[Rfam]
RNA sequence: UCCAUCGCGAGGUGGAAUCUGAAGGAAGCUGGAGGCAUAUGCACGGGCCAAGGUAUACGAACUGGGUUUGAGGCAGGGCUAGUCGGAUGAGUUGCCCACUCACAACGAAAUCCAAAGCCGCCAAGGGCUAAUCUUGUAGACCCCAGUGGUCGCGGGCAGACAGAUGGCGUU
Numbered sequence: 001u002c003c004a005u006c007g008c009g010a011g012g013u014g015g016a017a018u019c020u021g022a023a024g025g026a027a028g029c030u031g032g033a034g035g036c037a038u039a040u041g042c043a044c045g046g047g048c049c050a051a052g053g054u055a056u057a058c059g060a061a062c063u064g065g066g067u068u069u070g071a072g073g074c075a076g077g078g079c080u081a082g083u084c085g086g087a088u089g090a091g092u093u094g095c096c097c098a099c100u101c102a103c104a105a106c107g108a109a110a111u112c113c114a115a116a117g118c119c120g121c122c123a124a125g126g127g128c129u130a131a132u133c134u135u136g137u138a139g140a141c142c143c144c145a146g147u148g149g150u151c152g153c154g155g156g157c158a159g160a161c162a163g164a165u166g167g168c169g170u171u
Stems, first nucleotide, its partner, number of pairs: 001016006028171001030169002036163001040158003044154002046151005062146004066141002073137003077133002080130004085113004091106004
Record summary:
A member of the RNA family "Group II catalytic intron D1-D4-3" from Cohnella endophytica, 171 nucleotides long. The match comes from Rfam's covariance-model search (114 bits). NCBI's taxonomy places the organism under Bacteria, Bacilli, Caryophanales, Paenibacillaceae, Cohnella.